The family of this 45-nucleotide RNA from Lonepinella koalarum is "PreQ1 (pre queuosine) riboswitch aptamer".
The literature on the family includes a 2004 paper in J Biol Chem by Reader et al., "Identification of four genes necessary for biosynthesis of the modified nucleoside queuosine".
Pairs were carried over by alignment from the consensus structure.
About the family: This family is a bacterial riboswitch that binds to the metabolite preQ1, an intermediate in the biosynthesis of the modified nucleoside queuosine from GTP. One example of this riboswitch is located in the leader of the Bacillus subtilis ykvJKLM (queCDEF) operon which encodes four genes necessary for queuosine production. PreQ1 binding to the riboswitch aptamer is thought to induce premature transcription termination within the leader to down-regulate expression of these genes.

RNA sequence: UUAACCGUGGUUCGCAACCCUCCCACGCUAAAAAACUAAGGACUU
Numbered sequence: 001u002u003a004a005c006c007g008u009g010g011u012u013c014g015c016a017a018c019c020c021u022c023c024c025a026c027g028c029u030a031a032a033a034a035a036c037u038a039a040g041g042a043c044u045u
Stems, first nucleotide, its partner, number of pairs: 006027005016037001